The record is a 123-nucleotide RNA from Xenorhabdus koppenhoeferi, which matches "Phenylalanine leader peptide" in Rfam. A search with the family's covariance model found it, with a score of 67 bits. Rfam links the family to the GO term cellular amino acid metabolic process. The family's RNA type in Rfam is cis-regulatory leader. The base pairs follow the family's consensus structure, which was predicted with CMfinder.
[Rfam]
RNA sequence: AAUGAUGAGAUUAGCCUUUUUUCGUUUCUUUUUUUACUUUAGCGCCUGAAAUCAGGGGGCUUUGCGCGUAAGAAAAGACACGAAAAACAGCGCUUGAGCCUCCAGUGUGGAGGCUUUUUUAUU
Dot-bracket structure: .............((...(((((((.((((((.((((.......(((......)))((...))....)))).)))))).)))))))...))....(((((((((...))))))))).......